[Rfam]
RNA sequence: GGAGUCGGACAGGCUGUCGCCGCGGCCUUUGGCCGGGGAGGAAAGUCCGGGCUCCACAGGGCAGGACGCUGGGUAACUCCCAGGGGGAGUGAUCCCCGGAAAGUGUCACAGAGAGCAGACCGCCACCCGGACUCGUCCGGGCGGUAAGGGUGAAAGGGUGGGGUAAGAGCCCACCGGCGGGUGCGGCAACGCAUCCGGCCAGACAAACCCCGUCCGGAGCAAGACCAAAUAGGAAAGCGCUUGAGGCCGGCCCGGCCGAUGCUUUCGGGUAGGUUGCUUGAGGCGGCGGGAGACCGUCGUCCUAGAGGAAUGACAGCCACCCCGCAAGGGGGACAGGACCCGGCUUACCGUCCGGCUCCGUCA
Numbered sequence: 001g002g003a004g005u006c007g008g009a010c011a012g013g014c015u016g017u018c019g020c021c022g023c024g025g026c027c028u029u030u031g032g033c034c035g036g037g038g039a040g041g042a043a044a045g046u047c048c049g050g051g052c053u054c055c056a057c058a059g060g061g062c063a064g065g066a067c068g069c070u071g072g073g074u075a076a077c078u079c080c081c082a083g084g085g086g087g088a089g090u091g092a093u094c095c096c097c098g099g100a101a102a103g104u105g106u107c108a109c110a111g112a113g114a115g116c117a118g119a120c121c122g123c124c125a126c127c128c129g130g131a132c133u134c135g136u137c138c139g140g141g142c143g144g145u146a147a148g149g150g151u152g153a154a155a156g157g158g159u160g161g162g163g164u165a166a167g168a169g170c171c172c173a174c175c176g177g178c179g180g181g182u183g184c185g186g187c188a189a190c191g192c193a194u195c196c197g198g199c200c201a202g203a204c205a206a207a208c209c210c211c212g213u214c215c216g217g218a219g220c221a222a223g224a225c226c227a228a229a230u231a232g233g234a235a236a237g238c239g240c241u242u243g244a245g246g247c248c249g250g251c252c253c254g255g256c257c258g259a260u261g262c263u264u265u266c267g268g269g270u271a272g273g274u275u276g277c278u279u280g281a282g283g284c285g286g287c288g289g290g291a292g293a294c295c296g297u298c299g300u301c302c303u304a305g306a307g308g309a310a311u312g313a314c315a316g317c318c319a320c321c322c323c324g325c326a327a328g329g330g331g332g333a334c335a336g337g338a339c340c341c342g343g344c345u346u347a348c349c350g351u352c353c354g355g356c357u358c359c360g361u362c363a
Stems, first nucleotide, its partner, number of pairs: 001359010012318007020038002023035005043346003047343005052219004059253004064215005069083005084097005098210002103208002105204003120149002122145003126141006157175006177199001178197008223275004233266006245257004282301008